[Rfam]
RNA sequence: GCAAUUGAUGAAGCAGACUCAAAGGUUCGCUGGACGCGGGGGCAGUACCCGCCGCCUCCACCAUAAACACAUUAGGUGAGAUGAAGAUAACAAAAGAAAACACGCCUAACAAAUACGUAAGAUGGUUUGUUUGGUUCUUACAAUUUAGAUAUGUGUGGGAUAUUACUACACUGCUCGAAAAAUAUUUACCUAUGGAAAAGGUAUAUAGAUUUUUAGGCUUUUAUCUAUUUUGGUUAUUGUGGUUUUGUAUGGUACUAUUCAUCUUAUACAAAAUUACGGGAAGCAUGGACUUCUUACUUUGGUUCGAAUAAUGUGUUUAUGAUGGGGGCGAACUAGGAUCGACAGGUGCUGAAUAGGAAAGUGGAGAUUGCCGGGUGGUCGCGUAUAGACCGACUUAGUAACUGCAAACGAUAACUUUGCACCUUUGGCUGCCGCAGCGUAA
Numbered sequence: 001g002c003a004a005u006u007g008a009u010g011a012a013g014c015a016g017a018c019u020c021a022a023a024g025g026u027u028c029g030c031u032g033g034a035c036g037c038g039g040g041g042g043c044a045g046u047a048c049c050c051g052c053c054g055c056c057u058c059c060a061c062c063a064u065a066a067a068c069a070c071a072u073u074a075g076g077u078g079a080g081a082u083g084a085a086g087a088u089a090a091c092a093a094a095a096g097a098a099a100a101c102a103c104g105c106c107u108a109a110c111a112a113a114u115a116c117g118u119a120a121g122a123u124g125g126u127u128u129g130u131u132u133g134g135u136u137c138u139u140a141c142a143a144u145u146u147a148g149a150u151a152u153g154u155g156u157g158g159g160a161u162a163u164u165a166c167u168a169c170a171c172u173g174c175u176c177g178a179a180a181a182a183u184a185u186u187u188a189c190c191u192a193u194g195g196a197a198a199a200g201g202u203a204u205a206u207a208g209a210u211u212u213u214u215a216g217g218c219u220u221u222u223a224u225c226u227a228u229u230u231u232g233g234u235u236a237u238u239g240u241g242g243u244u245u246u247g248u249a250u251g252g253u254a255c256u257a258u259u260c261a262u263c264u265u266a267u268a269c270a271a272a273a274u275u276a277c278g279g280g281a282a283g284c285a286u287g288g289a290c291u292u293c294u295u296a297c298u299u300u301g302g303u304u305c306g307a308a309u310a311a312u313g314u315g316u317u318u319a320u321g322a323u324g325g326g327g328g329c330g331a332a333c334u335a336g337g338a339u340c341g342a343c344a345g346g347u348g349c350u351g352a353a354u355a356g357g358a359a360a361g362u363g364g365a366g367a368u369u370g371c372c373g374g375g376u377g378g379u380c381g382c383g384u385a386u387a388g389a390c391c392g393a394c395u396u397a398g399u400a401a402c403u404g405c406a407a408a409c410g411a412u413a414a415c416u417u418u419g420c421a422c423c424u425u426u427g428g429c430u431g432c433c434g435c436a437g438c439g440u441a442a
Stems, first nucleotide, its partner, number of pairs: 001371005026348001028346001030345003036052005053330007372381003
Dot-bracket structure: (((((....................(.(.(((...(((((.......)))))(((((((........................................................................................................................................................................................................................................................................)))))))............)))).)..................)))))(((....))).............................................................

About this RNA: Shown here is a 442-nucleotide sequence, a member of the family "permuted transfer-messenger RNA". The family's consensus secondary structure is taken from published work. Rfam's curators put it in the seed alignment.